[Rfam]
RNA sequence: CAAAGAGGAACUUCUGUUAAAACCGUCCACGUCCUGUGGACAACACAGAAGUCACCACAUCCUGUGGA
Numbered sequence: 001c002a003a004a005g006a007g008g009a010a011c012u013u014c015u016g017u018u019a020a021a022a023c024c025g026u027c028c029a030c031g032u033c034c035u036g037u038g039g040a041c042a043a044c045a046c047a048g049a050a051g052u053c054a055c056c057a058c059a060u061c062c063u064g065u066g067g068a
Base pairs, nucleotide, nucleotide: 011051012050013049014048015047016046017045026040027039028038029037030036055067056066057065058064
Dot-bracket structure: ..........(((((((........(((((.....)))))....)))))))...((((.....)))).